c-di-GMP-I-GGC riboswitch aptamer: an 81-nucleotide RNA sequence from Paenibacillus graminis. The family's consensus secondary structure is taken from published work. For this family Rfam cites "Bioinformatic analysis of riboswitch structures uncovers variant classes with altered ligand specificity" (Weinberg et al., Proc Natl Acad Sci U S A, 2017). Rfam 15.1 lists 1,298 matches to the family in 717 species.

RNA sequence: AACGACAAAGGCAAACCUAAUCGAAAGAUAGGGACGCAAAGCUAUAGGGCCUUCGAAAGAGUGGCAGCCUGGCUACCGAAA
Dot-bracket structure: ..((......((...((((.((....))))))..[))..((((..((((((...........))).])))))))..))...